[Rfam]
RNA sequence: GUUUUGUGAUGAUCCCCAUGCGUGUCAACUGAUCCCAGACUCCCUGCAGUGCUCAAUGUCUGAUGAGCGUUUUGCUCAACAGUGCAUUUUGAGCCUGUAGGACUCUGGGAACUUGAUCUUAACUUUUAAAUCUGAAAAC
Numbered sequence: 001g002u003u004u005u006g007u008g009a010u011g012a013u014c015c016c017c018a019u020g021c022g023u024g025u026c027a028a029c030u031g032a033u034c035c036c037a038g039a040c041u042c043c044c045u046g047c048a049g050u051g052c053u054c055a056a057u058g059u060c061u062g063a064u065g066a067g068c069g070u071u072u073u074g075c076u077c078a079a080c081a082g083u084g085c086a087u088u089u090u091g092a093g094c095c096u097g098u099a100g101g102a103c104u105c106u107g108g109g110a111a112c113u114u115g116a117u118c119u120u121a122a123c124u125u126u127u128a129a130a131u132c133u134g135a136a137a138a139c
Base pairs, nucleotide, nucleotide: 001139002138003137004136043101044100045099046098047097048096049095

This 139-nucleotide RNA belongs to the Rfam family "Small nucleolar RNA SNORD10". The family's consensus secondary structure was predicted with WAR. The family has 22 seed sequences and 433 matches in Rfam 15.1. Rfam links the family to the GO terms RNA processing and nucleolus. On this family, see Huttenhofer et al., EMBO J 2001: "RNomics: an experimental approach that identifies 201 candidates for novel, small, non-messenger RNAs in mouse".